[Rfam]
Bacteroidete tryptophan peptide leader RNA: a 126-nucleotide RNA sequence from Flavobacterium johnsoniae. Taxonomically the source falls in Flavobacterium johnsoniae (Bacteria, Flavobacteriia, Flavobacteriaceae, Flavobacterium). The family's RNA type in Rfam is cis-regulatory leader. It is one of the family's seed sequences.

RNA sequence: UGUCACAUCAAAAUAAAGAAAUGAGAACAAUAAUGAACAAUACUUGGUGGUGGAACAAUUUACGUCAAACGUCGUGAACGAAGCUUCCUAUGGUAUUUUCAAAACUAUAAAUAUAAAAGGCUUGUC
Numbered sequence: 001u002g003u004c005a006c007a008u009c010a011a012a013a014u015a016a017a018g019a020a021a022u023g024a025g026a027a028c029a030a031u032a033a034u035g036a037a038c039a040a041u042a043c044u045u046g047g048u049g050g051u052g053g054a055a056c057a058a059u060u061u062a063c064g065u066c067a068a069a070c071g072u073c074g075u076g077a078a079c080g081a082a083g084c085u086u087c088c089u090a091u092g093g094u095a096u097u098u099u100c101a102a103a104a105c106u107a108u109a110a111a112u113a114u115a116a117a118a119g120g121c122u123u124g125u126c
Base pairs, nucleotide, nucleotide: 035100036099037098040096041095042094043093044092047089049087050086052084059080061078062072063071064070